The record is a 79-nucleotide RNA sequence from Brugia malayi, which matches "let-7 microRNA precursor family" in Rfam. Gene Ontology terms of the family: miRNA-mediated post-transcriptional gene silencing and RISC complex. The family's consensus secondary structure was predicted with RNAalifold. A reference for the family is Liu et al. (2018), "Cryo-EM Structure of Human Dicer and Its Complexes with a Pre-miRNA Substrate", Cell. The sequence is in the family's curated seed alignment. This family represents the microRNAs (miRNA) let-7 and mir-98. let-7 was identified from a study of developmental timing in C. elegans, and was later shown to be part of a much larger class of non-coding RNAs termed miRNAs.
RNA sequence: GCUCGAUGAGGUAGUAGGUUGUAUAGUUAUGAGUUGUACCAUAAUCGGAGAAACUGUCCAGCCUGCUAGCUUGCCGUGC
Numbered sequence: 001g002c003u004c005g006a007u008g009a010g011g012u013a014g015u016a017g018g019u020u021g022u023a024u025a026g027u028u029a030u031g032a033g034u035u036g037u038a039c040c041a042u043a044a045u046c047g048g049a050g051a052a053a054c055u056g057u058c059c060a061g062c063c064u065g066c067u068a069g070c071u072u073g074c075c076g077u078g079c
Base pairs, nucleotide, nucleotide: 001079002078004076005075008072009071010070012068013067014066015065016064017063018062019061020060021059023057024056025055026054027053029042030041031040